[Rfam]
RNA sequence: AACUAUCAGGUCUGUGGUUGAAAGUCGAUGCCAGCCGCAGGCGAAGCGACCCACGUAAGUCAAACAAAGUUUGAUGAGCAUGGUGCGGUUUAGAAGUAAGUCCUGCCGGUAAAACCGAGAGAGGGAUUCGUGAAAGGCAUACACCUUAAGCAAAACCUCCAGCAGGCGGGUGUGGGGUCAAAGACCAGGUCAGCUGAUAGUU
Numbered sequence: 001a002a003c004u005a006u007c008a009g010g011u012c013u014g015u016g017g018u019u020g021a022a023a024g025u026c027g028a029u030g031c032c033a034g035c036c037g038c039a040g041g042c043g044a045a046g047c048g049a050c051c052c053a054c055g056u057a058a059g060u061c062a063a064a065c066a067a068a069g070u071u072u073g074a075u076g077a078g079c080a081u082g083g084u085g086c087g088g089u090u091u092a093g094a095a096g097u098a099a100g101u102c103c104u105g106c107c108g109g110u111a112a113a114a115c116c117g118a119g120a121g122a123g124g125g126a127u128u129c130g131u132g133a134a135a136g137g138c139a140u141a142c143a144c145c146u147u148a149a150g151c152a153a154a155a156c157c158u159c160c161a162g163c164a165g166g167c168g169g170g171u172g173u174g175g176g177g178u179c180a181a182a183g184a185c186c187a188g189g190u191c192a193g194c195u196g197a198u199a200g201u202u
Stems, first nucleotide, its partner, number of pairs: 001202009012193003015187005028173003031041001033090007050083002058075001060073001062071002081180001102166005107117003121159004130151002136145002
Shown here is a 202-nucleotide sequence from Caloramator sp. E03, a member of the family "raiA RNA".
It scores 194 bits against the family's covariance model.
The source organism's lineage runs through Bacteria, Clostridia, Eubacteriales, Clostridiaceae and Caloramator.